[Rfam]
RNA sequence: GGGGGCGACCGGUUUCGACGGGGUAAGAUAAUGAUAAGAUUGCAUGCAGAGGUUCGGGAUCCUCUUUAAUAUCCCCGAAAUAUCAAUAAAUGCCGAUUACGGCUACAUGGCAGCUGCUUAAUUAGCUCUGCCCGCUCUGGAUUAAGUUUGUCUGUGGUUUAAUCUAAGAGCGUCAUAAACGCAGACUGGUCCCUGGAUUUGUUUACUAGAAAGGGAUAAGAUGUUUUGUAAACUGGUUGAUAUAUGGGUUGUUAUUUGUCCGCUAUAUCAAUGAGAAUAAAUCAGAUGACUAUGUAUGUAGACGUUUUGUUAGAAUCUAUCUCGGACGGGAGUUCGAAUCUCCCCGCCUCCACAU
Number, nucleotide and partner (000 for none) at each position: 001g351002g350003g349004g348005g347006c346007g345008a000009c000010c000011g000012g000013u000014u000015u000016c000017g000018a000019c324020g323021g322022g321023g320024u319025a318026a000027g316028a000029u000030a000031a000032u312033g311034a310035u309036a308037a307038g306039a305040u304041u000042g000043c298044a297045u296046g295047c294048a065049g064050a063051g062052g061053u079054u078055c077056g076057g075058g074059a000060u000061c052062c051063u050064c049065u048066u000067u000068a000069a000070u000071a000072u000073c000074c058075c057076c056077g055078a054079a053080a000081u000082a000083u000084c000085a000086a000087u000088a000089a000090a000091u000092g000093c000094c000095g000096a000097u000098u000099a000100c000101g000102g000103c000104u000105a000106c000107a000108u000109g000110g000111c000112a000113g000114c000115u000116g131117c130118u000119u000120a127121a000122u000123u000124a000125g000126c000127u120128c000129u000130g117131c116132c000133c000134g000135c000136u000137c000138u000139g173140g000141a000142u170143u169144a000145a000146g000147u168148u167149u166150g000151u000152c000153u000154g000155u000156g000157g186158u185159u184160u183161a000162a000163u000164c000165u000166a149167a148168g147169a143170g142171c000172g000173u139174c000175a000176u000177a000178a000179a000180c000181g000182c000183a160184g159185a158186c157187u219188g000189g217190u216191c215192c214193c213194u212195g000196g000197a000198u000199u000200u000201g233202u232203u231204u230205a229206c000207u000208a000209g000210a000211a000212a194213g193214g192215g191216a190217u189218a000219a187220g000221a000222u000223g000224u000225u000226u000227u000228g000229u205230a204231a203232a202233c201234u000235g000236g272237u271238u270239g269240a268241u267242a266243u265244a264245u000246g000247g260248g259249u258250u000251g290252u289253u288254a287255u286256u285257u284258g249259u248260c247261c000262g000263c000264u244265a243266u242267a241268u240269c239270a238271a237272u236273g000274a000275g000276a000277a000278u000279a000280a000281a000282u000283c000284a257285g256286a255287u254288g253289a252290c251291u000292a000293u000294g047295u046296a045297u044298g043299u000300a000301g000302a000303c000304g040305u039306u038307u037308u036309g035310u034311u033312a032313g000314a000315a000316u027317c000318u025319a024320u023321c022322u021323c020324g019325g000326a000327c000328g344329g343330g342331a341332g340333u000334u000335c000336g000337a000338a000339u000340c332341u331342c330343c329344c328345c007346g006347c005348c004349u003350c002351c001352a000353c000354a000355u000
Shown here is a 355-nucleotide RNA, a member of the family "transfer-messenger RNA". The base pairs follow the family's consensus structure, which is taken from published work. Rfam describes the family as follows. Bacterial tmRNA, also known as 10Sa RNA or SsrA, is named for its dual tRNA and mRNA-like properties. Its role is to liberate the mRNA from a stalled ribosome. To accomplish this part of the tmRNA is used as a reading frame that ends in a translation stop signal. By type it is a non-coding RNA gene.